[Rfam]
RNA sequence: UCACGCACAGGGCAAACCAUCUGAAAAGGUGGGACGCAAAGCCUCCGGCCUAAACCCAAUUUUGGGUAGGUAGCGGGGUUACCGAU
Number, nucleotide and partner (000 for none) at each position: 001u000002c000003a000004c000005g000006c000007a000008c000009a000010g000011g000012g037013c036014a000015a000016a000017c032018c031019a030020u029021c028022u027023g000024a000025a000026a000027a022028g021029g020030u019031g018032g017033g000034a000035c000036g013037c012038a000039a000040a080041g079042c078043c077044u000045c076046c075047g074048g071049c070050c069051u000052a000053a000054a000055c066056c065057c064058a063059a000060u000061u000062u000063u058064g057065g056066g055067u000068a000069g050070g049071u048072a000073g000074c047075g046076g045077g043078g042079u041080u040081a000082c000083c000084g000085a000086u000
A member of the RNA family "c-di-GMP-I riboswitch aptamer" from Vibrio furnissii, 86 nucleotides long. Pairs were carried over by alignment from the consensus structure, which is taken from published work. On this family, see Sudarsan et al., Science 2008: "Riboswitches in Eubacteria Sense the Second Messenger Cyclic Di-GMP". Gene Ontology term of the family: cyclic-di-GMP binding.